[Rfam]
RNA sequence: UGCCGCAAUGAUGACAUUUAUUUGCUACUCUUGACUGAAAGAAUGACGAUAAUCUUAACCACCAUUAUUUUAACUGAGGCA
Numbered sequence: 001u002g003c004c005g006c007a008a009u010g011a012u013g014a015c016a017u018u019u020a021u022u023u024g025c026u027a028c029u030c031u032u033g034a035c036u037g038a039a040a041g042a043a044u045g046a047c048g049a050u051a052a053u054c055u056u057a058a059c060c061a062c063c064a065u066u067a068u069u070u071u072a073a074c075u076g077a078g079g080c081a
Stems, first nucleotide, its partner, number of pairs: 001081004
Shown here is an 81-nucleotide RNA from Heterocephalus glaber, a member of the family "Small nucleolar RNA SNORD24". Pairs were carried over by alignment from the consensus structure, which was predicted with PFOLD. Rfam classes the family as a C/D-box small nucleolar RNA. Its family is annotated with RNA processing and nucleolus in the Gene Ontology. Taxonomically the source falls in Heterocephalus (Eukaryota, Eumetazoa, Mammalia, Euarchontoglires).